[Rfam]
RNA sequence: CAAACAAAUAAAAACCUAAUAAUAUAAAGGUCUUGCUAAUAACCUUAACCAAUUCAUGCUAUUUGGCAGAAUGAGUAAGACCACACUCCACAGUGGACUAUACCACUUACUAUGGUUCAUUACUAUAUUGUGGCCUACAUU
Numbered sequence: 001c002a003a004a005c006a007a008a009u010a011a012a013a014a015c016c017u018a019a020u021a022a023u024a025u026a027a028a029g030g031u032c033u034u035g036c037u038a039a040u041a042a043c044c045u046u047a048a049c050c051a052a053u054u055c056a057u058g059c060u061a062u063u064u065g066g067c068a069g070a071a072u073g074a075g076u077a078a079g080a081c082c083a084c085a086c087u088c089c090a091c092a093g094u095g096g097a098c099u100a101u102a103c104c105a106c107u108u109a110c111u112a113u114g115g116u117u118c119a120u121u122a123c124u125a126u127a128u129u130g131u132g133g134c135c136u137a138c139a140u141u
Stems, first nucleotide, its partner, number of pairs: 005065004013060001015058001017056001021054002029044003078136002081133005092121011
RNA: Small nucleolar RNA SNORA4